[Rfam]
RNA sequence: GUGAAGUUGAUCACAAGCAAACAUAUACCCCUUUGUUUGACCGUGAAAAAUUUCUCCCAUCCCCUUUGUUCGUAUGAAUAGAGAAAGCCCGCUUAUCCCGGCGGGCUUUUUCG
Number, nucleotide and partner (000 for none) at each position: 001g000002u000003g054004a053005a052006g051007u050008u049009g000010a000011u046012c045013a044014c043015a000016a000017g000018c039019a038020a037021a036022c035023a034024u000025a000026u000027a000028c000029c000030c000031c000032u000033u000034u023035g022036u021037u020038u019039g018040a000041c000042c000043g014044u013045g012046a011047a000048a000049a008050a007051u006052u005053u004054c003055u000056c000057c000058c000059a000060u000061c000062c000063c000064c000065u000066u000067u000068g000069u000070u080071c000072g000073u000074a000075u000076g000077a000078a000079u000080a070081g000082a000083g110084a109085a108086a107087g106088c105089c104090c103091g102092c101093u100094u000095a000096u000097c000098c000099c000100g093101g092102c091103g090104g089105g088106c087107u086108u085109u084110u083111u000112c000113g000
The family of this 113-nucleotide RNA from Peribacillus faecalis is "RNA Staph. aureus E (RoxS)". It is annotated as a small RNA. Rfam describes the family as follows. It was shown to be regulated by the presence of nitric oxide (NO). In Bacillus subtilis it controls expression of genes with functions related to oxidative stress and oxidation-reduction reactions and it was renamed RoxS (for related to oxidative stress). A search with the family's covariance model found it, with a score of 103 bits.